[Rfam]
Nucleotides: 068
Stems, first nucleotide, its partner, number of pairs: 005062002008059001011030001013028001015027003035056004040052003044048001
Number, partner (000 for none) and nucleotide at each position: 001000a002000g003000c004000g005062c006061g007000a008059c009000c010000g011030g012000a013028u014000c015027c016026a017025c018000a019000c020000c021000g022000c023000g024000g025017g026016u027015g028013a029000c030011c031000a032000c033000c034000a035056g036055g037054u038053a039000g040052u041051c042050g043000c044048g045000c046000a047000u048044c049000a050042c051041g052040a053038u054037g055036c056035c057000g058000u059008g060000c061006c062005g063000g064000u065000u066000c067000u068000c